[Rfam]
Nucleotides: 378
Base pairs, nucleotide, nucleotide: 001374002373003372004371005370006369007368008367009366011363012318013317014316015315016314017313018312020039021038023036024035025034026033027032044361045360046359048358049357050356051355052354053221054220055219056218060254061253062252063251065217066216067215068214069213070084071083072082073081074080085099086097087096088095089094100212101211105210106209107206108205109204122151123150124147125146126145128143129142130141131140132139133138159177160176161175162174163173164172179201180199181198183196184195185194186193187192225275226274227273228272234266235265236264237263238262239261246258247257248256249255282301283300284299285298286297287296288295289294
Number, partner (000 for none) and nucleotide at each position: 001374u002373g003372g004371g005370c006369u007368g008367g009366c010000c011363g012318g013317g014316c015315g016314a017313c018312c019000g020039c021038g022000u023036u024035g025034g026033g027032g028000g029000c030000g031000a032027c033026u034025c035024c036023a037000c038021c039020g040000a041000g042000g043000a044361a045360g046359g047000u048358c049357c050356g051355g052354g053221c054220u055219c056218c057000a058000c059000a060254g061253g062252g063251c064000a065217g066216g067215g068214u069213g070084g071083u072082g073081g074080c075000u076000a077000a078000c079000g080074g081073c082072c083071a084070c085099c086097c087096g088095a089094g090000g091000u092000g093000a094089c095088u096087c097086g098000c099085g100212g101211g102000a103000a104000a105210g106209u107206g108205c109204c110000a111000c112000a113000g114000a115000a116000a117000a118000c119000a120000g121000a122151c123150c124147g125146c126145c127000a128143c129142c130141g131140g132139u133138c134000u135000u136000c137000g138133g139132g140131c141130c142129g143128g144000c145126g146125g147124u148000a149000a150123g151122g152000g153000u154000g155000a156000a157000a158000c159177g160176g161175u162174g163173g164172u165000g166000u167000a168000a169000g170000a171000g172164a173163c174162c175161a176160c177159c178000a179201g180199c181198g182000a183196g184195g185194c186193g187192g188000g189000a190000g191000a192187c193186c194185g195184u196183c197000a198181c199180g200000g201179c202000u203000a204109g205108g206107c207000a208000a209106a210105c211101c212100c213069c214068a215067c216066c217065u218056g219055g220054a221053g222000c223000a224000a225275g226274a227273u228272c229000a230000g231000a232000c233000a234266g235265u236264g237263a238262g239261c240000g241000u242000u243000c244000g245000a246258g247257g248256g249255c250000g251063g252062c253061c254060c255249g256248c257247c258246u259000g260000a261239g262238c263237u264236c265235a266234c267000g268000g269000g270000u271000a272228g273227a274226u275225c276000g277000c278000a279000g280000g281000a282301c283300g284299g285298u286297g287296u288295c289294g290000g291000c292000a293000a294289c295288g296287g297286c298285a299284c300283c301282g302000c303000u304000a305000g306000a307000u308000g309000g310000a311000u312018g313017g314016u315015c316014g317013c318012c319000a320000g321000u322000c323000c324000c325000g326000g327000c328000g329000u330000c331000g332000u333000g334000a335000g336000g337000c338000g339000c340000c341000g342000g343000g344000a345000g346000g347000a348000a349000c350000a351000g352000a353000a354052c355051c356050c357049g358048g359046c360045c361044u362000a363011u364000g365000a366009g367008c368007c369006a370005g371004c372003c373002c374001g375000u376000c377000c378000g